[Rfam]
RNA sequence: ACACGAGAAGGGAGGUGGUCCGUUAGUGAUUAUUCACAGGACGCGUGAGGUGGCUGAGCGCUAGCCCAGCCCGUUCCCUGGCCCCCCUCGGGUGUGCCAGUCGUGGACGGCAAGGGUGACCGCAAUCCCAAGCAGUCACCGCAGCCCGUGAGGAUGCGCGACUCGUCCAUCGCGCCCCGGACCGCAUGGCCCGGAGCUCACGGGCUGUUCCAU
Dot-bracket structure: ...............((((.................................))))..((.(.((((...((((((............................))))))...)))).).))...................(((((((((((...((((((........)))))).....................)))))))))))......

The family of this 213-nucleotide sequence from Oryzihumus leptocrescens is "Actinobacteria sRNA Ms_IGR-5".
NCBI's taxonomy places the organism under Bacteria, Bacillati, Actinomycetota, Actinomycetes, Oryzihumus.
It is annotated as a small RNA.
A reference for the family is Li et al. (2013), "Identification of small RNAs in Mycobacterium smegmatis using heterologous Hfq", RNA.